[Rfam]
RNA: Vault RNA
RNA sequence: GUGCUGGCCAAAUUAAGGGGUUACUUCGCACAUUUCACAUUUGGAAACUGAAUUAAUUUGAUUCCUUGUCUCAAUGACAAGGGGCCAAUUAAAGAACCCCUGAUGCUAUCCAGCACUUUU
Dot-bracket structure: .((((((....((((.((((....(((..................................................................))))))))))).....)))))).....